[Rfam]
RNA sequence: UUAGGUGAAAUACAUGUGGGUCUCAUACUUUGAAAAUGGGUCCCACACAAAGUGAUGAGACCUACAUUGAUUUCACCCAA
Number, nucleotide and partner (000 for none) at each position: 001u080002u079003a000004g077005g076006u075007g074008a073009a072010a071011u070012a000013c000014a067015u066016g065017u064018g063019g000020g000021u000022c000023u058024c057025a056026u054027a053028c052029u051030u050031u049032g048033a000034a000035a000036a000037u000038g000039g000040g000041u000042c000043c000044c000045a000046c000047a000048c032049a031050a030051a029052g028053u027054g026055a000056u025057g024058a023059g000060a000061c000062c000063u018064a017065c016066a015067u014068u000069g000070a011071u010072u009073u008074c007075a006076c005077c004078c000079a002080a001
A member of the RNA family "MIR5269 microRNA precursor family" from Trifolium subterraneum, 80 nucleotides long. Rfam links the family to the GO terms RISC complex and miRNA-mediated post-transcriptional gene silencing. A search with the family's covariance model found it, with a score of 61 bits. Lineage of the source: Eukaryota > Streptophyta > Euphyllophyta > Pentapetalae > Trifolium. The family has 2 seed sequences and 389 matches in Rfam 15.1.